[Rfam]
Nucleotides: 080
Base pairs, nucleotide, nucleotide: 003054004053005052006051007050008049009048010047011046012045015042016041017068018067019066020065021064026039027038028037029036059073060072061071
Number, partner (000 for none) and nucleotide at each position: 001000a002000g003054g004053u005052u006051c007050u008049u009048a010047u011046a012045u013000g014000a015042c016041u017068g018067a019066c020065g021064g022000a023000u024000a025000a026039g027038c028037a029036g030000a031000a032000u033000u034000a035000a036029c037028u038027g039026c040000a041016a042015g043000g044000a045012g046011u047010a048009u049008a050007a051006g052005a053004a054003u055000g056000u057000a058000a059073g060072c061071c062000g063000a064021c065020c066019g067018u068017c069000u070000g071061g072060g073059c074000a075000c076000u077000c078000u079000a080000c
A member of the RNA family "ZMP/ZTP riboswitch aptamer (pfl RNA motif)" from Zhenhengia yiwuensis, 80 nucleotides long.